[Rfam]
RNA sequence: AACCAAAACUUCUAGUCAGGAUGUUUUCUGUUCCAAGAGAACGACCAGUUUACGAAGAUGUCUGUUACUGUUUUGGGAGAUUGAUACUACUCACAGUCCUUCCUUUGCUCCCGUUCUGGGUGCAAUGGGACAACUAGGCUGGCCUUCUUCGUUUUGAGGAUUGUUGAGCUUUGUUGUGAGUAAUGAGGCGUUCGAGAAGUAUUGGGCGCAGAAGAAUACAAGAAAACUUUUCUUGUAUAACAGGUUUCUGCGUUCGCUUGCUUUUCGAUGCCUCACAGCA
Numbered sequence: 001a002a003c004c005a006a007a008a009c010u011u012c013u014a015g016u017c018a019g020g021a022u023g024u025u026u027u028c029u030g031u032u033c034c035a036a037g038a039g040a041a042c043g044a045c046c047a048g049u050u051u052a053c054g055a056a057g058a059u060g061u062c063u064g065u066u067a068c069u070g071u072u073u074u075g076g077g078a079g080a081u082u083g084a085u086a087c088u089a090c091u092c093a094c095a096g097u098c099c100u101u102c103c104u105u106u107g108c109u110c111c112c113g114u115u116c117u118g119g120g121u122g123c124a125a126u127g128g129g130a131c132a133a134c135u136a137g138g139c140u141g142g143c144c145u146u147c148u149u150c151g152u153u154u155u156g157a158g159g160a161u162u163g164u165u166g167a168g169c170u171u172u173g174u175u176g177u178g179a180g181u182a183a184u185g186a187g188g189c190g191u192u193c194g195a196g197a198a199g200u201a202u203u204g205g206g207c208g209c210a211g212a213a214g215a216a217u218a219c220a221a222g223a224a225a226a227c228u229u230u231u232c233u234u235g236u237a238u239a240a241c242a243g244g245u246u247u248c249u250g251c252g253u254u255c256g257c258u259u260g261c262u263u264u265u266c267g268a269u270g271c272c273u274c275a276c277a278g279c280a
Base pairs, nucleotide, nucleotide: 003076004075005074006073007072019063020062021061022060023059024058025057026056027055028054030042031041032040033039088182089181090180091179092178096131097130098129099128100127106124107123108122110120111119112118137170138169139168140167146160147159148158149157150156151155185274186273187272188271192268193267194266195265203256204255205254206253207252211247212246213245216238217237218236219235220234221233222232223231224230
Rfam assigns this 280-nucleotide sequence from Lachancea dasiensis to the family "Small nucleolar RNA snR191". Rfam links the family to the GO terms RNA processing and nucleolus. The organism belongs to Lachancea, within Eukaryota. Its Rfam clan is "SNORA74 clan". A reference for the family is Badis et al. (2003), "A snoRNA that guides the two most conserved pseudouridine modifications within rRNA confers a growth advantage in yeast", RNA.